The family of this 100-nucleotide RNA from Paenibacillus crassostreae is "Purine riboswitch aptamer". Lineage of the source: Bacteria > Bacilli > Caryophanales > Paenibacillaceae > Paenibacillus. The match comes from Rfam's covariance-model search (61 bits).
RNA sequence: CUUACAUUGUCAUACGACUUCCGUAUAGGUGCAGGAAUCGGCCUGCAUGUCUCUACCCGAUCACCGGAAUGAUUGGACUACGGAUUAGCCAUAUCAUGUC
Numbered sequence: 001c002u003u004a005c006a007u008u009g010u011c012a013u014a015c016g017a018c019u020u021c022c023g024u025a026u027a028g029g030u031g032c033a034g035g036a037a038u039c040g041g042c043c044u045g046c047a048u049g050u051c052u053c054u055a056c057c058c059g060a061u062c063a064c065c066g067g068a069a070u071g072a073u074u075g076g077a078c079u080a081c082g083g084a085u086u087a088g089c090c091a092u093a094u095c096a097u098g099u100c
Base pairs, nucleotide, nucleotide: 020084021083022082023081024080025079029048030047031046032045033044034043035042057076058075059074060073061072062071063070